[Rfam]
RNA sequence: UGACGGAACUCUGGAGAGACCAUUAAUUUGGCGCCGAAGGGGCAAGGCUUUGCUCAAUCUCUCAGGCAAAAGGACAGAGAAAUUGUU
Numbered sequence: 001u002g003a004c005g006g007a008a009c010u011c012u013g014g015a016g017a018g019a020c021c022a023u024u025a026a027u028u029u030g031g032c033g034c035c036g037a038a039g040g041g042g043c044a045a046g047g048c049u050u051u052g053c054u055c056a057a058u059c060u061c062u063c064a065g066g067c068a069a070a071a072g073g074a075c076a077g078a079g080a081a082a083u084u085g086u087u
Base pairs, nucleotide, nucleotide: 009079010078011077012076013075020031021030022029033067034066035065036063037062040061041060042059046054047053
Background: A member of the RNA family "Glycine riboswitch aptamer" from Globicatella sp. HMSC072A10, 87 nucleotides long. The source organism's lineage runs through Bacteria, Bacillati, Bacilli, Lactobacillales and Globicatella. Gene Ontology term of the family: glycine biosynthetic process.